Description: A member of the RNA family "SAM-I/IV (S-adenosyl methionine) riboswitch aptamer" from Elizabethkingia meningoseptica, 96 nucleotides long. The family has 417 seed sequences and 567 matches in Rfam 15.1. The literature on the family includes a 2008 paper in RNA by Weinberg et al., "The aptamer core of SAM-IV riboswitches mimics the ligand-binding site of SAM-I riboswitches". Clan: SAM clan. It scores 59 bits against the family's covariance model. Gene Ontology terms of the family: S-adenosylmethionine metabolic process and regulation of gene expression.
RNA sequence: CGAAAUUAUCAAGAACCCCAAAAUCUGGGUAGCAACCUGCAACAACAAGCAAGGUGCUAAAAUAGAUAAGCCGUUUCCGGAAAAAAUGUUGAUUAC
Number, nucleotide and partner (000 for none) at each position: 001c000002g000003a000004a000005a000006u069007u068008a067009u066010c065011a000012a000013g000014a000015a030016c000017c029018c028019c027020a026021a000022a000023a000024u000025c000026u020027g019028g018029g017030u015031a058032g057033c056034a000035a000036c054037c053038u052039g050040c049041a000042a000043c000044a000045a090046c000047a000048a000049g040050c039051a000052a038053g037054g036055u000056g033057c032058u031059a000060a000061a000062a000063u000064a000065g010066a009067u008068a007069a006070g000071c080072c079073g078074u000075u000076u000077c000078c073079g072080g071081a000082a000083a000084a000085a000086a000087u000088g000089u000090u045091g000092a000093u000094u000095a000096c000